Rfam assigns this 94-nucleotide sequence from Mikania micrantha to the family "Small nucleolar RNA Z221/R21b". Rfam 15.1 lists 588 matches to the family in 222 species. The family's consensus secondary structure was predicted with WAR. The match comes from Rfam's covariance-model search (59 bits).
RNA sequence: GGGCAGUGAUGAUACAUUAUGAAAGUCAUGCACCACUCUGAUGUUCAGUGUGAUUGAUAAACUUUCUAAUUACCCAUUAAUUGCAUCUGAGCCC
Numbered sequence: 001g002g003g004c005a006g007u008g009a010u011g012a013u014a015c016a017u018u019a020u021g022a023a024a025g026u027c028a029u030g031c032a033c034c035a036c037u038c039u040g041a042u043g044u045u046c047a048g049u050g051u052g053a054u055u056g057a058u059a060a061a062c063u064u065u066c067u068a069a070u071u072a073c074c075c076a077u078u079a080a081u082u083g084c085a086u087c088u089g090a091g092c093c094c
Stems, first nucleotide, its partner, number of pairs: 001094004